[Rfam]
Burkholderia sRNA Bp2_Cand287_SIPHT: a 185-nucleotide RNA sequence from Paraburkholderia humisilvae. It scores 101 bits against the family's covariance model. The source organism's lineage runs through Bacteria, Pseudomonadati, Betaproteobacteria, Burkholderiales and Paraburkholderia. For this family Rfam cites "Computational discovery and RT-PCR validation of novel Burkholderia conserved and Burkholderia pseudomallei unique sRNAs" (Khoo et al., BMC Genomics, 2012).

RNA sequence: AAAAAGCCCGCUUUGCGUCGGCAUAAGCGGGCUUUGUGUGCGGAAAGCUUUGAGCGUAACGGGCACGCGUUCGCGGCCACCGUUCACUUUAGCUGUUUCGGGCGGCCCUUUUGAGGGUUGCCCCGCGUCCGCAAGAUGAACUCAAAUCGACGCAAGACCUGAUUCUAACACCGCUGACACCGGGU
Numbered sequence: 001a002a003a004a005a006g007c008c009c010g011c012u013u014u015g016c017g018u019c020g021g022c023a024u025a026a027g028c029g030g031g032c033u034u035u036g037u038g039u040g041c042g043g044a045a046a047g048c049u050u051u052g053a054g055c056g057u058a059a060c061g062g063g064c065a066c067g068c069g070u071u072c073g074c075g076g077c078c079a080c081c082g083u084u085c086a087c088u089u090u091a092g093c094u095g096u097u098u099c100g101g102g103c104g105g106c107c108c109u110u111u112u113g114a115g116g117g118u119u120g121c122c123c124c125g126c127g128u129c130c131g132c133a134a135g136a137u138g139a140a141c142u143c144a145a146a147u148c149g150a151c152g153c154a155a156g157a158c159c160u161g162a163u164u165c166u167a168a169c170a171c172c173g174c175u176g177a178c179a180c181c182g183g184g185u
Base pairs, nucleotide, nucleotide: 004034005033006032007031008030009029010028011027012026014023015022016021039154040153041152042151046088047087053084054083062078063077066075067074089139090138091137093135094134100124101123102122125132126131170185171184172183